RNA sequence: AAGUCUUCUUGGAGUGUCAGCUAAGAUCACGUGCAGUAUCUGUUCUUAUCAGUUAAUAUCUGAUACAUUCUCCAUUCAAGAACAAUAUAUUAAAUGGAGUUUUGGAAAUAGGAGAUGGAAUAGGAGCUUGUCACGUCCACACAUUGACCUGGUAUGGUAGUAACUUCAGGAAUGGUGUAUCCCCU
Dot-bracket structure: ......(((.((........)).)))....................((((((.......))))))..((((.......))))............................(((..(((............)))..)))..((((((.(((((.............)))))..)))))).......
Shown here is a 185-nucleotide RNA from Heterocephalus glaber, a member of the family "U2 spliceosomal RNA". U2 is a small nuclear RNA (snRNA) component of the spliceosome (involved in pre-mRNA splicing). Complementary binding between U2 snRNA (in an area lying towards the 5' end but 3' to hairpin I) and the branchpoint sequence (BPS) of the intron results the bulging out of an unpaired adenosine, on the BPS, which initiates a nucleophilic attack at the intronic 5' splice site, thus starting the first of two transesterification reactions that mediate splicing. On this family, see Thomas et al., Nucleic Acids Res 1990: "The spliceosomal snRNAs of Caenorhabditis elegans". By type it is a spliceosomal small nuclear RNA. The match comes from Rfam's covariance-model search (103 bits). Taxonomically the source falls in Heterocephalus (Eukaryota, Sarcopterygii, Eutheria, Rodentia). Gene Ontology terms of the family: pre-mRNA branch point binding, mRNA branch site recognition and U2 snRNP.